[Rfam]
RNA sequence: GCCUUAUCAAGAGCGGUGGAGGGAUCAGGCCCUGUGAAACCCGGCAACCUGGCGUCAGCGUCAAGGUGCUAAAUCCUGCGGUUAUUUUCCGGAAGAUGGGGA
Numbered sequence: 001g002c003c004u005u006a007u008c009a010a011g012a013g014c015g016g017u018g019g020a021g022g023g024a025u026c027a028g029g030c031c032c033u034g035u036g037a038a039a040c041c042c043g044g045c046a047a048c049c050u051g052g053c054g055u056c057a058g059c060g061u062c063a064a065g066g067u068g069c070u071a072a073a074u075c076c077u078g079c080g081g082u083u084a085u086u087u088u089c090c091g092g093a094a095g096a097u098g099g100g101g102a
Stems, first nucleotide, its partner, number of pairs: 002101007013042001015041003021032003026078004043070004048066002051062004074094001079091003
Rfam assigns this 102-nucleotide RNA sequence from Hominimerdicola alba to the family "SAM riboswitch aptamer (S box leader)".
The family's consensus secondary structure is taken from published work.
NCBI's taxonomy places the organism under Bacteria, Bacillati, Bacillota, Hominimerdicola, Hominimerdicola alba.